[Rfam]
RNA: U5 spliceosomal RNA
Organism: Penaeus vannamei
RNA sequence: UAACUCUGGUUUCCCUUCAAAACGCAUAAAUCUUUCGCCUUUUACUAAAGAUUUCCGUGGAGGGAACAACUCAAUGAGUCUUACUCAAUUUUUUCUAUAGCCCACUUCGGGGUUU
Numbered sequence: 001u002a003a004c005u006c007u008g009g010u011u012u013c014c015c016u017u018c019a020a021a022a023c024g025c026a027u028a029a030a031u032c033u034u035u036c037g038c039c040u041u042u043u044a045c046u047a048a049a050g051a052u053u054u055c056c057g058u059g060g061a062g063g064g065a066a067c068a069a070c071u072c073a074a075u076g077a078g079u080c081u082u083a084c085u086c087a088a089u090u091u092u093u094u095c096u097a098u099a100g101c102c103c104a105c106u107u108c109g110g111g112g113u114u115u
Stems, first nucleotide, its partner, number of pairs: 003079004009067001011066009028054008097115001099114005